A member of the RNA family "Molybdenum/Tungsten riboswitch aptamer (Moco RNA motif)" from Desulforamulus aquiferis, 118 nucleotides long.
Lineage of the source: Bacteria > Bacillati > Bacillota > Peptococcaceae > Desulforamulus.
Rfam links the family to the GO terms regulation of gene expression, tungstate binding and molybdenum ion binding.
RNA sequence: UUUUAAAUGUUUCUCCGAGCCUUUAAACCUAAAGCUUUAGCCAGGGUUUACCGGCCGUUUAGGGUUAGCAGGGAAACCGGCUGGCCUCCCAUUGGAAAGGAGAAUUAUCUAUCUGGGC
Numbered sequence: 001u002u003u004u005a006a007a008u009g010u011u012u013c014u015c016c017g018a019g020c021c022u023u024u025a026a027a028c029c030u031a032a033a034g035c036u037u038u039a040g041c042c043a044g045g046g047u048u049u050a051c052c053g054g055c056c057g058u059u060u061a062g063g064g065u066u067a068g069c070a071g072g073g074a075a076a077c078c079g080g081c082u083g084g085c086c087u088c089c090c091a092u093u094g095g096a097a098a099g100g101a102g103a104a105u106u107a108u109c110u111a112u113c114u115g116g117g118c
Stems, first nucleotide, its partner, number of pairs: 004111001011104006019055003024050006034041002062087008071078002088095002